[Rfam]
RNA sequence: GUGGGUACAAGGAAUCUACUUUAUUCAAUACACUAACCUAAUUUCCGAGAAAUGUUACAUAUCUUAGAAAUUAGGGUUUUUCUUGGUUUGUGUGCUGAACAAAGUAGAUUCCUUAUACCCA
Numbered sequence: 001g002u003g004g005g006u007a008c009a010a011g012g013a014a015u016c017u018a019c020u021u022u023a024u025u026c027a028a029u030a031c032a033c034u035a036a037c038c039u040a041a042u043u044u045c046c047g048a049g050a051a052a053u054g055u056u057a058c059a060u061a062u063c064u065u066a067g068a069a070a071u072u073a074g075g076g077u078u079u080u081u082c083u084u085g086g087u088u089u090g091u092g093u094g095c096u097g098a099a100c101a102a103a104g105u106a107g108a109u110u111c112c113u114u115a116u117a118c119c120c121a
Base pairs, nucleotide, nucleotide: 002121003120004119005118006117007116009114010113011112012111013110014109015108016107017106018105019104020103021102022101024099025098029094030093031092032091033090035088036087037086046085047084048083056073057072059071060070

Rfam assigns this 121-nucleotide sequence from Medicago truncatula to the family "MIR2599 microRNA precursor family". Gene Ontology terms of the family: RISC complex and miRNA-mediated post-transcriptional gene silencing.